The family of this 357-nucleotide part of an RNA from Halapricum desulfuricans is "Archaeal large subunit ribosomal RNA".
Pairs were carried over by alignment from the consensus structure, which is taken from published work.
Clan: LSU clan.
RNA sequence: CAUAGUAGCAGCGAAAGUCGGGUGAGAAUCCUGACGGCCGAAAGGGCAAGGGUUCCUCGGCACUGUUCGUCAGCCGAGGGUUAGCCGAUCCUAAGAUCCGUCGCAAUUCGAGCGGAUCGAACGGGAAACUGGUUAAUAUUCCAGUGCCACUAUACACUCAAAGCCGACGCCUCGGGGUAGACCGAACCGGGCUUUCGCCCGGUCGAAUCGUCCAAGCUCGUGGAAGCCGUAACGGCACGAAGCGGGCGAACGGCGAGAUAGGGAAACUCGGUUCAACCUGGGGCCCGUGAAAAGGCAAGUAUAGUGUUCGUACCCAGCACCGACACAGGUGCCCUGGCGGAGAAAGCCCAGGCCUGU
Numbered sequence: 001c002a003u004a005g006u007a008g009c010a011g012c013g014a015a016a017g018u019c020g021g022g023u024g025a026g027a028a029u030c031c032u033g034a035c036g037g038c039c040g041a042a043a044g045g046g047c048a049a050g051g052g053u054u055c056c057u058c059g060g061c062a063c064u065g066u067u068c069g070u071c072a073g074c075c076g077a078g079g080g081u082u083a084g085c086c087g088a089u090c091c092u093a094a095g096a097u098c099c100g101u102c103g104c105a106a107u108u109c110g111a112g113c114g115g116a117u118c119g120a121a122c123g124g125g126a127a128a129c130u131g132g133u134u135a136a137u138a139u140u141c142c143a144g145u146g147c148c149a150c151u152a153u154a155c156a157c158u159c160a161a162a163g164c165c166g167a168c169g170c171c172u173c174g175g176g177g178u179a180g181a182c183c184g185a186a187c188c189g190g191g192c193u194u195u196c197g198c199c200c201g202g203u204c205g206a207a208u209c210g211u212c213c214a215a216g217c218u219c220g221u222g223g224a225a226g227c228c229g230u231a232a233c234g235g236c237a238c239g240a241a242g243c244g245g246g247c248g249a250a251c252g253g254c255g256a257g258a259u260a261g262g263g264a265a266a267c268u269c270g271g272u273u274c275a276a277c278c279u280g281g282g283g284c285c286c287g288u289g290a291a292a293a294g295g296c297a298a299g300u301a302u303a304g305u306g307u308u309c310g311u312a313c314c315c316a317g318c319a320c321c322g323a324c325a326c327a328g329g330u331g332c333c334c335u336g337g338c339g340g341a342g343a344a345a346g347c348c349c350a351g352g353c354c355u356g357u
Base pairs, nucleotide, nucleotide: 017035018034019033020032021031022030036354037353038352039351044334045333046332047331050314051313055079056078057077058076059075060074064072065071086310087309088308090124091123095118096117097116098115099114100113101111102110103109128145129144130143131142132141148306149305150304151303152302153301154300155299163296164295165294169284170283171282172281173280174279175278176277180273181272182271183270184269186203187202188201189200190199208256209255210254211253217246218245219244220243221242226236227235228234262267320329321328336348337347338346